[Rfam]
RNA sequence: CGGCACAACCACGGGAGUCCGGUGUGCCGGGCUGAGAGGAAGCGACCGCGCUUCGACCGUCGAACCUGAUCUGGGUCAUGCCAGCGCAGGAAGGGAGCAGGAAUGCACA
Numbered sequence: 001c002g003g004c005a006c007a008a009c010c011a012c013g014g015g016a017g018u019c020c021g022g023u024g025u026g027c028c029g030g031g032c033u034g035a036g037a038g039g040a041a042g043c044g045a046c047c048g049c050g051c052u053u054c055g056a057c058c059g060u061c062g063a064a065c066c067u068g069a070u071c072u073g074g075g076u077c078a079u080g081c082c083a084g085c086g087c088a089g090g091a092a093g094g095g096a097g098c099a100g101g102a103a104u105g106c107a108c109a
Stems, first nucleotide, its partner, number of pairs: 006097001009094002011060004017032005039054005065090004071084004
TPP riboswitch aptamer (THI element): a 109-nucleotide sequence from Microbacterium sp. SYP-A9085. Pairs were carried over by alignment from the consensus structure, which is taken from published work.